DUF3800-III RNA: a 133-nucleotide RNA. The family's RNA type in Rfam is small RNA. The sequence is in the family's curated seed alignment.

RNA sequence: AGAGUAGUACAAUAAGGCCUAGUGCCUCUAGACCUACGUAGUGGGUCGUCCUCCGUGCAAAACACCUGCUGGUGGUUGUCCAUAAGCUUCUGUUUAUAGCGGUGAGAAUCGGAGCUUAGGGAUUGACUAUUCG
Number, nucleotide and partner (000 for none) at each position: 001a000002g132003a131004g130005u129006a128007g127008u000009a000010c125011a124012a123013u000014a000015a000016g000017g000018c120019c119020u118021a117022g116023u000024g000025c000026c114027u113028c112029u000030a000031g000032a000033c045034c044035u043036a042037c041038g000039u000040a000041g037042u036043g035044g034045g033046u000047c000048g000049u000050c000051c000052u000053c000054c000055g000056u000057g000058c000059a000060a000061a000062a000063c000064a000065c000066c000067u000068g000069c000070u000071g000072g000073u000074g000075g000076u000077u000078g000079u000080c099081c000082a097083u096084a095085a094086g093087c000088u000089u000090c000091u000092g000093u086094u085095u084096a083097u082098a000099g080100c000101g000102g000103u000104g000105a000106g000107a000108a000109u000110c000111g000112g028113a027114g026115c000116u022117u021118a020119g019120g018121g000122a000123u012124u011125g010126a000127c007128u006129a005130u004131u003132c002133g000